[Rfam]
RNA sequence: GAGUUGUUGCCGCGGCAGUAAUAUAUGGCAGUACGAGAGGAACGCAUAUUUCACACCACUGGUUCAUGCAGCUGCCUGAGCAGGCAGUGCUGCGAAGCUACCGUGUGAAUGAUCAGAAUAGCUGAGAGAGUCUAAGCUAGGAUCGGUUCUGCUCAGCGGCGACUUAUUUGUAUCCGCCUCGACACUGUGUACAGAUAGCCUUCGGGCGAGCACCAUUGGGCGUAAGCUUAUCGUCGUGCGUUUUAGCGGAUGUAAAAUCACCUGCAGAUGACUGGGUUGGGACUGGAGCGUGUACAGCGUUGAGAGAUCUUGUUAUCUCGAUUCCUUGAGCGUAUCUGAGUCCUUACGAUUUGU
Numbered sequence: 001g002a003g004u005u006g007u008u009g010c011c012g013c014g015g016c017a018g019u020a021a022u023a024u025a026u027g028g029c030a031g032u033a034c035g036a037g038a039g040g041a042a043c044g045c046a047u048a049u050u051u052c053a054c055a056c057c058a059c060u061g062g063u064u065c066a067u068g069c070a071g072c073u074g075c076c077u078g079a080g081c082a083g084g085c086a087g088u089g090c091u092g093c094g095a096a097g098c099u100a101c102c103g104u105g106u107g108a109a110u111g112a113u114c115a116g117a118a119u120a121g122c123u124g125a126g127a128g129a130g131u132c133u134a135a136g137c138u139a140g141g142a143u144c145g146g147u148u149c150u151g152c153u154c155a156g157c158g159g160c161g162a163c164u165u166a167u168u169u170g171u172a173u174c175c176g177c178c179u180c181g182a183c184a185c186u187g188u189g190u191a192c193a194g195a196u197a198g199c200c201u202u203c204g205g206g207c208g209a210g211c212a213c214c215a216u217u218g219g220g221c222g223u224a225a226g227c228u229u230a231u232c233g234u235c236g237u238g239c240g241u242u243u244u245a246g247c248g249g250a251u252g253u254a255a256a257a258u259c260a261c262c263u264g265c266a267g268a269u270g271a272c273u274g275g276g277u278u279g280g281g282a283c284u285g286g287a288g289c290g291u292g293u294a295c296a297g298c299g300u301u302g303a304g305a306g307a308u309c310u311u312g313u314u315a316u317c318u319c320g321a322u323u324c325c326u327u328g329a330g331c332g333u334a335u336c337u338g339a340g341u342c343c344u345u346a347c348g349a350u351u352u353g354u
Stems, first nucleotide, its partner, number of pairs: 006163008016151003021051001023049005052107005060100003067094005072087006110145002119139005171252007255352005261275002264272001279344006285337003289332002296326002299323001304319005
Rfam assigns this 354-nucleotide part of an RNA from Palmaria palmata to the family "Eukaryotic large subunit ribosomal RNA". The source organism's lineage runs through Eukaryota, Rhodophyta, Florideophyceae, Palmariaceae and Palmaria. Rfam's curators put it in the seed alignment.